Overview: Shown here is a 215-nucleotide RNA from Streptomyces aidingensis, a member of the family "Streptomyces sRNA 4677". Rfam describes the family as follows. Located in the intergenic region between anti-sigma factor SCO4677 gene and a putative regulatory protein gene SCO4676. scr4677 expression requires the SCO4677 activity and scr4677 sRNA itself seem to affect the levels of the SCO4676-associated transcripts. The organism belongs to Streptomyces, within Bacteria. On this family, see Hindra et al., PLoS One 2014: "Complex intra-operonic dynamics mediated by a small RNA in Streptomyces coelicolor". A search with the family's covariance model found it, with a score of 73 bits.
[Rfam]
RNA sequence: GGCGGUGGGGCGGCGGCCUUGUAAAAGGACUGUCGGGGAAAGGACCUUCCCACCCACCCACCAGCAAAGUCGUCACCCGAUAGGGGGACUUCGCUGUGACCGGGGAUGUGCGCGGGGCUAUCGUCACGGCAGACAACCGCAGAAAAGACUUCGGCCCCCGUGCGGGACUGGCAUCCCGCCGAGGGCCUGACCUCUCAGGAAGGCAACUCUUCCCG
Numbered sequence: 001g002g003c004g005g006u007g008g009g010g011c012g013g014c015g016g017c018c019u020u021g022u023a024a025a026a027g028g029a030c031u032g033u034c035g036g037g038g039a040a041a042g043g044a045c046c047u048u049c050c051c052a053c054c055c056a057c058c059c060a061c062c063a064g065c066a067a068a069g070u071c072g073u074c075a076c077c078c079g080a081u082a083g084g085g086g087g088a089c090u091u092c093g094c095u096g097u098g099a100c101c102g103g104g105g106a107u108g109u110g111c112g113c114g115g116g117g118c119u120a121u122c123g124u125c126a127c128g129g130c131a132g133a134c135a136a137c138c139g140c141a142g143a144a145a146a147g148a149c150u151u152c153g154g155c156c157c158c159c160g161u162g163c164g165g166g167a168c169u170g171g172c173a174u175c176c177c178g179c180c181g182a183g184g185g186c187c188u189g190a191c192c193u194c195u196c197a198g199g200a201a202g203g204c205a206a207c208u209c210u211u212c213c214c215g
Stems, first nucleotide, its partner, number of pairs: 001193002008062002012059001073087002076085003101128002104125002153187005159181002164177004198213005